The family of this 72-nucleotide RNA from Hyalella azteca is "mir-153 microRNA precursor family". Gene Ontology terms of the family: RISC complex and miRNA-mediated post-transcriptional gene silencing. Rfam 15.1 lists 1,565 matches to the family in 711 species. The family's consensus secondary structure was predicted with RNAalifold. The organism belongs to Hyalella, within Eukaryota. The literature on the family includes a 2009 paper in Mol Reprod Dev by Tesfaye et al., "Identification and expression profiling of microRNAs during bovine oocyte maturation using heterologous approach".

[Rfam]
RNA sequence: UCGGCCAUCAUUUUCGUGAUUCUUGCAAUUUUUAUUGAUAUUUAAUUGCAUAGUCACAAAAGUGAUGGCGGA
Numbered sequence: 001u002c003g004g005c006c007a008u009c010a011u012u013u014u015c016g017u018g019a020u021u022c023u024u025g026c027a028a029u030u031u032u033u034a035u036u037g038a039u040a041u042u043u044a045a046u047u048g049c050a051u052a053g054u055c056a057c058a059a060a061a062g063u064g065a066u067g068g069c070g071g072a
Base pairs, nucleotide, nucleotide: 002071004069005068006067008065009064010063011062012061013060014059016057017056018055019054020053024050025049026048027047028046029045030044